[Rfam]
RNA sequence: CUACCAAAAGUUAACUUUUUGGGGGGAAGGUUUAUUAAGUAACCUUUACCAGGUUGGGCUAUUGGAAGAAUAAAUGACCACACUCCACAGUGGACUGUACCACUUAUUAUAGUUCGCUACUAUUCUGUGGCCUACAUU
Numbered sequence: 001c002u003a004c005c006a007a008a009a010g011u012u013a014a015c016u017u018u019u020u021g022g023g024g025g026g027a028a029g030g031u032u033u034a035u036u037a038a039g040u041a042a043c044c045u046u047u048a049c050c051a052g053g054u055u056g057g058g059c060u061a062u063u064g065g066a067a068g069a070a071u072a073a074a075u076g077a078c079c080a081c082a083c084u085c086c087a088c089a090g091u092g093g094a095c096u097g098u099a100c101c102a103c104u105u106a107u108u109a110u111a112g113u114u115c116g117c118u119a120c121u122a123u124u125c126u127g128u129g130g131c132c133u134a135c136a137u138u
Base pairs, nucleotide, nucleotide: 004065005064006063008062012061013060015058016057017056021054025050026049028047029044030043031042032041076132078130079129080128081127082126089118090117091116092115093114094113095112096111097110098109099108
Shown here is a 138-nucleotide RNA sequence from Callithrix jacchus, a member of the family "Small nucleolar RNA SNORA4". Its family is annotated with RNA processing and nucleolus in the Gene Ontology. Rfam classes the family as an H/ACA-box small nucleolar RNA. Rfam 15.1 lists 290 matches to the family in 136 species. The source organism's lineage runs through Eukaryota, Deuterostomia, Vertebrata, Tetrapoda and Callithrix. ACA4 is a member of the H/ACA class of snoRNA that guide the sites of modification of uridines to pseudouridines. It scores 127 bits against the family's covariance model. The base pairs follow the family's consensus structure, which was predicted with PFOLD.